The family of this 67-nucleotide RNA sequence from Loktanella fryxellensis is "L2-Alphaproteobacteria ribosomal protein leader". NCBI's taxonomy places the organism under Bacteria, Pseudomonadota, Alphaproteobacteria, Roseobacteraceae, Loktanella. By type it is a cis-regulatory leader. The match comes from Rfam's covariance-model search (69 bits).
[Rfam]
RNA sequence: AGGGACCUUCGGGGCCCUUCACUUCAGGGCCGCCUCGGUGGCCCGCCAAGCAAACGGAAGACAGAAA
Numbered sequence: 001a002g003g004g005a006c007c008u009u010c011g012g013g014g015c016c017c018u019u020c021a022c023u024u025c026a027g028g029g030c031c032g033c034c035u036c037g038g039u040g041g042c043c044c045g046c047c048a049a050g051c052a053a054a055c056g057g058a059a060g061a062c063a064g065a066a067a
Stems, first nucleotide, its partner, number of pairs: 001018004006014003027044007